[Rfam]
RNA sequence: GAGUGAACACAGCUCUUUUAGAAUUUUUUUUUUCUGGCUUUCUAAUUUUGAUUGAGAAAACCCAA
Numbered sequence: 001g002a003g004u005g006a007a008c009a010c011a012g013c014u015c016u017u018u019u020a021g022a023a024u025u026u027u028u029u030u031u032u033u034c035u036g037g038c039u040u041u042c043u044a045a046u047u048u049u050g051a052u053u054g055a056g057a058a059a060a061c062c063c064a065a
Base pairs, nucleotide, nucleotide: 036062037061039059040058041057042056043055044053045052046051

A member of the RNA family "U7 small nuclear RNA" from Rattus norvegicus, 65 nucleotides long. A search with the family's covariance model found it, with a score of 35 bits. On this family, see Spycher et al., Nucleic Acids Res 1994: "3' end processing of mouse histone pre-mRNA: evidence for additional base-pairing between U7 snRNA and pre-mRNA". Animal histone pre-mRNAs are spliced by a different mechanism than nuclear pre-mRNAs and self-splicing introns. Pairs were carried over by alignment from the consensus structure, which was predicted with PFOLD.